The family of this 159-nucleotide RNA from Eubacterium sp. AF36-5BH is "Ribosomal protein L10 leader". Its family is annotated with regulation of gene expression in the Gene Ontology. The match comes from Rfam's covariance-model search (65 bits). This family is a putative r-protein leader autoregulatory structure found in B. subtilis and other low-GC Gram-positive bacteria. It is located in the 5' untranslated regions of mRNAs encoding ribosomal proteins L10 and L12 (rplJ-rplL). A Rho-independent transcription terminator structure that is probably involved in regulation is included at the 3' end. It is annotated as a cis-regulatory leader. On this family, see Zengel and Lindahl, Prog Nucleic Acid Res Mol Biol 1994: "Diverse mechanisms for regulating ribosomal protein synthesis in Escherichia coli".

[Rfam]
RNA sequence: GUGGUUGAAAACCAAUUGCCGAAGACAGUAGGUAUUUGUCGCUGAUUUAUCAGCUACGAAUGUAAGUGCGAGAAUGAUUGUCGCCUACCGAGGGAUUAAGUUAACAAACAAGACUUUAUACCUCUCUGUCUUUAGGCAGAGAGGUUUCUUAUAUUAUAA
Numbered sequence: 001g002u003g004g005u006u007g008a009a010a011a012c013c014a015a016u017u018g019c020c021g022a023a024g025a026c027a028g029u030a031g032g033u034a035u036u037u038g039u040c041g042c043u044g045a046u047u048u049a050u051c052a053g054c055u056a057c058g059a060a061u062g063u064a065a066g067u068g069c070g071a072g073a074a075u076g077a078u079u080g081u082c083g084c085c086u087a088c089c090g091a092g093g094g095a096u097u098a099a100g101u102u103a104a105c106a107a108a109c110a111a112g113a114c115u116u117u118a119u120a121c122c123u124c125u126c127u128g129u130c131u132u133u134a135g136g137c138a139g140a141g142a143g144g145u146u147u148c149u150u151a152u153a154u155u156a157u158a159a
Base pairs, nucleotide, nucleotide: 028088029087030086031085032084033083121144122143123142124141125140126139127138128137129136130135